[Rfam]
RNA sequence: GGUAGAGUAAGUAUUGCGCGUUAAGUGGCAAGAGGCUGGGAAGUCGCCCUUGCACGAAGGACGGGAAGUCGCCCACGAUGUAAUGCUGCAUCCGCUACC
Numbered sequence: 001g002g003u004a005g006a007g008u009a010a011g012u013a014u015u016g017c018g019c020g021u022u023a024a025g026u027g028g029c030a031a032g033a034g035g036c037u038g039g040g041a042a043g044u045c046g047c048c049c050u051u052g053c054a055c056g057a058a059g060g061a062c063g064g065g066a067a068g069u070c071g072c073c074c075a076c077g078a079u080g081u082a083a084u085g086c087u088g089c090a091u092c093c094g095c096u097a098c099c
Stems, first nucleotide, its partner, number of pairs: 001099005010087009019077003025055002028053005034048002039093003043089001059074002062071001
A member of the RNA family "THF (Tetrahydrofolate) riboswitch aptamer" from Clostridium sp. CAG:1024, 99 nucleotides long. Its family is annotated with tetrahydrofolate metabolic process in the Gene Ontology. From the family's description: Tetrahydrofolate (THF) riboswitch was first reported for Ames et al. as an RNA motif in 5' untranslated (5'-UTR)regions of folate transport and biosynthesis genes in Firmicutes genomes. NCBI's taxonomy places the organism under Bacteria, Bacillati, Eubacteriales, Clostridiaceae, Clostridium. A search with the family's covariance model found it, with a score of 70 bits. On this family, see Ames et al., Chem Biol 2010: "A eubacterial riboswitch class that senses the coenzyme tetrahydrofolate".